[Rfam]
RNA: Potassium channel RNA editing signal
Organism: Menidia menidia
RNA sequence: GUUGGCUAUGGCGAUAUCUAUCCCAAAACUCUGCUGGGAAAGAUUGUAGGGGGGUUGUGCUGCAUUGCUGGAGUACUUGUGAUUGCACUACCCAUUCCCAUAAUUGUAAAUAAC
Numbered sequence: 001g002u003u004g005g006c007u008a009u010g011g012c013g014a015u016a017u018c019u020a021u022c023c024c025a026a027a028a029c030u031c032u033g034c035u036g037g038g039a040a041a042g043a044u045u046g047u048a049g050g051g052g053g054g055u056u057g058u059g060c061u062g063c064a065u066u067g068c069u070g071g072a073g074u075a076c077u078u079g080u081g082a083u084u085g086c087a088c089u090a091c092c093c094a095u096u097c098c099c100a101u102a103a104u105u106g107u108a109a110a111u112a113a114c
Stems, first nucleotide, its partner, number of pairs: 001114002004111001007108005014101002020095002037077002040074001049063001051061001